[Rfam]
RNA sequence: AGUGCGGACCGGGCCCCUCUGGCGCUGCCUUCGGGUGGCGUGAUGUCGGGACGCAUCG
Numbered sequence: 001a002g003u004g005c006g007g008a009c010c011g012g013g014c015c016c017c018u019c020u021g022g023c024g025c026u027g028c029c030u031u032c033g034g035g036u037g038g039c040g041u042g043a044u045g046u047c048g049g050g051a052c053g054c055a056u057c058g
Stems, first nucleotide, its partner, number of pairs: 006052001009049004022041008
Description
The record is a 58-nucleotide sequence from Palleronia aestuarii, which matches "terC RNA" in Rfam. Pairs were carried over by alignment from the consensus structure, which is taken from published work. The source organism's lineage runs through Bacteria, Pseudomonadota, Rhodobacterales, Roseobacteraceae and Palleronia. Rfam classes the family as a cis-regulatory element. The match comes from Rfam's covariance-model search (52 bits).